[Rfam]
RNA sequence: CCUGCUCUAACGGGGUGCCCGCAGGUUUGCCUGCCGGCUGAGAGGCGGUUUCGCCAACCCGAAGAACCUGAUCCGGCUCGUACCGGCGGAGGGAUUAGACGGCACAUCCAG
Numbered sequence: 001c002c003u004g005c006u007c008u009a010a011c012g013g014g015g016u017g018c019c020c021g022c023a024g025g026u027u028u029g030c031c032u033g034c035c036g037g038c039u040g041a042g043a044g045g046c047g048g049u050u051u052c053g054c055c056a057a058c059c060c061g062a063a064g065a066a067c068c069u070g071a072u073c074c075g076g077c078u079c080g081u082a083c084c085g086g087c088g089g090a091g092g093g094a095u096u097a098g099a100c101g102g103c104a105c106a107u108c109c110a111g
Stems, first nucleotide, its partner, number of pairs: 006099005011061004017038003021034004045054003067092003073086004